Nucleotides: 280
Stems, first nucleotide, its partner, number of pairs: 011241003016236002019233002023229005034138003038133004042128002047054002055125003060122002063119003067115003073084004089107008139224006145187003150164003153160002165184004170179001189209005196202002250280014
Number, partner (000 for none) and nucleotide at each position: 001000g002000c003000a004000a005000g006000g007000a008000a009000c010000u011241g012240g013239u014000c015000g016236c017235c018000c019233g020232g021000u022000c023229c024228a025227g026226c027225g028000a029000c030000u031000u032000u033000c034138u035137c036136g037000a038133u039132g040131g041130g042128c043127a044000a045000c046000u047054g048053g049000a050000c051000u052000u053048c054047c055125g056124u057123g058000g059000a060122c061121g062000a063119c064118u065117g066000g067115c068114g069113g070000u071000a072000c073084g074083u075082a076081g077000c078000c079000a080000u081076c082075u083074g084073c085000u086000c087000a088000u089107g090106u091105g092104u093103c094102g095101g096100c097000a098000u099000u100096g101095c102094c103093g104092g105091c106090g107089c108000u109000u110000c111000a112000u113069c114068c115067g116000g117065c118064a119063g120000a121061u122060g123057c124056g125055c126000c127043u128042g129000a130041c131040c132039c133038a134000g135000g136036c137035g138034a139224c140223c141222g142221u143220g144219c145187g146186c147185c148000g149000c150164c151163u152162g153160c154159c155000c156000g157000a158000a159154g160153g161000a162152c163151a164150g165184a166183g167182c168181c169000c170179g171000g172000a173000a174000c175000u176000c177000g178000a179170c180000a181168g182167g183166c184165u185147g186146g187145c188000c189209g190208c191207g192206c193205a194000c195000c196202u197201c198000g199000u200000c201197g202196a203000a204000c205193u206192g207191c208190g209189c210000a211000a212000g213000g214000a215000c216000g217000c218000c219144g220143c221142g222141c223140g224139g225027c226026g227025c228024u229023g230000a231000g232020c233019c234000c235017g236016g237000c238000c239013g240012c241011c242000a243000a244000g245000g246000a247000a248000a249000a250280a251279g252278c253277c254276g255275c256274c257273g258272c259271c260270c261269g262268u263267g264000a265000a266000u267263c268262g269261c270260g271259g272258g273257u274256g275255g276254c277253g278252g279251c280250u

About this RNA:
The family of this 280-nucleotide RNA from Pseudomonas paraeruginosa is "Pseudomonas sRNA P17". It is annotated as a small RNA. Rfam's curators put it in the seed alignment. The organism belongs to Pseudomonas paraeruginosa, within Bacteria. The family's consensus secondary structure was predicted with WAR.